[Rfam]
RNA sequence: CUCUGUCUCACUAGAAAUAAUGAUUCAGGGCGAAAGGGG
Numbered sequence: 001c002u003c004u005g006u007c008u009c010a011c012u013a014g015a016a017a018u019a020a021u022g023a024u025u026c027a028g029g030g031c032g033a034a035a036g037g038g039g
Base pairs, nucleotide, nucleotide: 001030002029003028004027005026008023009022010021
Annotation: Rfam assigns this 39-nucleotide RNA sequence from Pseudolycoriella hygida to the family "L31-Firmicutes ribosomal protein leader". On this family, see Eckert and Weinberg, BMC Microbiol 2020: "Discovery of 20 novel ribosomal leader candidates in bacteria and archaea". The family's consensus secondary structure is taken from published work. NCBI's taxonomy places the organism under Eukaryota, Altocrustacea, Eumetabola, Nematocera, Pseudolycoriella. It is annotated as a cis-regulatory leader.